[Rfam]
RNA: transfer-messenger RNA
Organism: Thalassotalea euphylliae
RNA sequence: GGGGCAGAUUCAGGAUUCGACAAGAUUCGCGAAACCCAAGGUGCAUGCCCAGGGGCGGUUGGCCUGGUAAAAAGCCGCAAAACUAUAGUUGCAAACGACGAAACGUUCGCACUAGCAGCUUAAUGCUAGCCAUCCCCGUCAAGUUUUACCUGUAGACUAGCGGAGCGAUGGUCAUACUAUACUAGGUUAGCGAGGGAACCUUGUCUGAGGGUGAACCGCGAAACAGUAUCAGACUCACCAGAAAGUAGCCUGUCGUUCGGCGACUGACUGGUUAAAUAAUAGAACGACUAAGCAUGUAGGACCGAGGAUGUAGGUUUUUUGGACGGGGGUUCAACUCCCCCCUGCUCCACCA
Numbered sequence: 001g002g003g004g005c006a007g008a009u010u011c012a013g014g015a016u017u018c019g020a021c022a023a024g025a026u027u028c029g030c031g032a033a034a035c036c037c038a039a040g041g042u043g044c045a046u047g048c049c050c051a052g053g054g055g056c057g058g059u060u061g062g063c064c065u066g067g068u069a070a071a072a073a074g075c076c077g078c079a080a081a082a083c084u085a086u087a088g089u090u091g092c093a094a095a096c097g098a099c100g101a102a103a104c105g106u107u108c109g110c111a112c113u114a115g116c117a118g119c120u121u122a123a124u125g126c127u128a129g130c131c132a133u134c135c136c137c138g139u140c141a142a143g144u145u146u147u148a149c150c151u152g153u154a155g156a157c158u159a160g161c162g163g164a165g166c167g168a169u170g171g172u173c174a175u176a177c178u179a180u181a182c183u184a185g186g187u188u189a190g191c192g193a194g195g196g197a198a199c200c201u202u203g204u205c206u207g208a209g210g211g212u213g214a215a216c217c218g219c220g221a222a223a224c225a226g227u228a229u230c231a232g233a234c235u236c237a238c239c240a241g242a243a244a245g246u247a248g249c250c251u252g253u254c255g256u257u258c259g260g261c262g263a264c265u266g267a268c269u270g271g272u273u274a275a276a277u278a279a280u281a282g283a284a285c286g287a288c289u290a291a292g293c294a295u296g297u298a299g300g301a302c303c304g305a306g307g308a309u310g311u312a313g314g315u316u317u318u319u320u321g322g323a324c325g326g327g328g329g330u331u332c333a334a335c336u337c338c339c340c341c342c343u344g345c346u347c348c349a350c351c352a
Stems, first nucleotide, its partner, number of pairs: 001348007021321005028314001034309001036307002040303003044296005049067005055078006112129002115127001118124001130171005136163004142158004148187005190219003203235001206232001237272005244265003248261003252288007325341005